[Rfam]
RNA sequence: CCGCCCGUCGCUCCUACCGAUUGGGUGUGCUGGUGAAGUGUUCGGAUUGGCAGCUUAGGGUGGCAACACCUCAGGUCUGCCGAGAAGUUCAUUAAACCCUCCCACCUAGAGGAAGGAGAAGUCGUAACAAGGUUUCCGUAGGUGAACCUGCGGAAGGAUCAUUG
Numbered sequence: 001c002c003g004c005c006c007g008u009c010g011c012u013c014c015u016a017c018c019g020a021u022u023g024g025g026u027g028u029g030c031u032g033g034u035g036a037a038g039u040g041u042u043c044g045g046a047u048u049g050g051c052a053g054c055u056u057a058g059g060g061u062g063g064c065a066a067c068a069c070c071u072c073a074g075g076u077c078u079g080c081c082g083a084g085a086a087g088u089u090c091a092u093u094a095a096a097c098c099c100u101c102c103c104a105c106c107u108a109g110a111g112g113a114a115g116g117a118g119a120a121g122u123c124g125u126a127a128c129a130a131g132g133u134u135u136c137c138g139u140a141g142g143u144g145a146a147c148c149u150g151c152g153g154a155a156g157g158a159u160c161a162u163u164g
Base pairs, nucleotide, nucleotide: 001131003128006124007123009121011118012117013116014115015114017112018111021108023107024106025105026104027103029101032098033097034096037093038092039091040090043087047083048082049081050080051079052078053077055075056074058071059070060069061068133156134155135154136153137152138151139150140149141148142147
RNA: Eukaryotic small subunit ribosomal RNA, nucleotides 1633 to 1796